[Rfam]
RNA sequence: CCCGACAAAGGCAUAACCAGGGCAACCUGGCGACGCAAAGUCACGGGCCCUUCCAGGGUCGCCGGACUGCCGAAG
Numbered sequence: 001c002c003c004g005a006c007a008a009a010g011g012c013a014u015a016a017c018c019a020g021g022g023c024a025a026c027c028u029g030g031c032g033a034c035g036c037a038a039a040g041u042c043a044c045g046g047g048c049c050c051u052u053c054c055a056g057g058g059u060c061g062c063c064g065g066a067c068u069g070c071c072g073a074a075g
Stems, first nucleotide, its partner, number of pairs: 001075001003072002011036002017030005034061001039068004044064003047059003